[Rfam]
RNA sequence: UAGAAAAGCUUGCGCUCAGGCUUUCUGCGCGGACGAAGUCGACCGGCCGCCAACACAUGCCCAAAGGGGUAUGGAGCAGUUACGGAGUGGCGUGCUGAGCCAUUCCAUACGGCGCAAGCA
Numbered sequence: 001u002a003g004a005a006a007a008g009c010u011u012g013c014g015c016u017c018a019g020g021c022u023u024u025c026u027g028c029g030c031g032g033a034c035g036a037a038g039u040c041g042a043c044c045g046g047c048c049g050c051c052a053a054c055a056c057a058u059g060c061c062c063a064a065a066g067g068g069g070u071a072u073g074g075a076g077c078a079g080u081u082a083c084g085g086a087g088u089g090g091c092g093u094g095c096u097g098a099g100c101c102a103u104u105c106c107a108u109a110c111g112g113c114g115c116a117a118g119c120a
Base pairs, nucleotide, nucleotide: 008119009118010117011116012115013114014113015112016111025079026078027077028076029050030049031048032047034045035044056073057072058071059070060069061068062067084106085105086104088102089101090100091099
Notes: Rfam assigns this 120-nucleotide RNA to the family "DUF3268 RNA". By type it is a small RNA.